[Rfam]
RNA sequence: GGCGAUAAACGGGCUACAUAAUAAGCCAUUCGGACCCGGGGGCGGUACCCGGCGCCUCCACCAAUUAUCUCCCCGUCGUGGCGGGAAUUCCUGGGGGCGAACUAGGAUCGACGAGGGUGUAAAAGUAGUUCUUUUGCCCGGCAUGGUUCCGCCGUCAUCGGGCCGUUUUAUAGUUGCCAACGACAACUAUGCUGAGGUUGCCGUCGCUGCGUAA
Numbered sequence: 001g002g003c004g005a006u007a008a009a010c011g012g013g014c015u016a017c018a019u020a021a022u023a024a025g026c027c028a029u030u031c032g033g034a035c036c037c038g039g040g041g042g043c044g045g046u047a048c049c050c051g052g053c054g055c056c057u058c059c060a061c062c063a064a065u066u067a068u069c070u071c072c073c074c075g076u077c078g079u080g081g082c083g084g085g086a087a088u089u090c091c092u093g094g095g096g097g098c099g100a101a102c103u104a105g106g107a108u109c110g111a112c113g114a115g116g117g118u119g120u121a122a123a124a125g126u127a128g129u130u131c132u133u134u135u136g137c138c139c140g141g142c143a144u145g146g147u148u149c150c151g152c153c154g155u156c157a158u159c160g161g162g163c164c165g166u167u168u169u170a171u172a173g174u175u176g177c178c179a180a181c182g183a184c185a186a187c188u189a190u191g192c193u194g195a196g197g198u199u200g201c202c203g204u205c206g207c208u209g210c211g212u213a214a
Stems, first nucleotide, its partner, number of pairs: 001138005014128004026117002030114003036052005053099007139154004

This 214-nucleotide sequence from Parvibaculum sedimenti belongs to the Rfam family "permuted transfer-messenger RNA". About the family: Bacterial tmRNA, also known as 10Sa RNA or SsrA, is named for its dual tRNA and mRNA-like properties. It scores 147 bits against the family's covariance model. The family's consensus secondary structure is taken from published work. On this family, see Williams and Bartel, RNA 1996: "Phylogenetic analysis of tmRNA secondary structure".